[Rfam]
RNA: RAGATH-18 RNA
RNA sequence: CCUUAUGAGUGUUAUAUAAGCCAGAGUAGCAUAUGCAAAAUGGGACACGAUGAAUAAGGAA
Numbered sequence: 001c002c003u004u005a006u007g008a009g010u011g012u013u014a015u016a017u018a019a020g021c022c023a024g025a026g027u028a029g030c031a032u033a034u035g036c037a038a039a040a041u042g043g044g045a046c047a048c049g050a051u052g053a054a055u056a057a058g059g060a061a
Stems, first nucleotide, its partner, number of pairs: 001059005009048005021043003029036002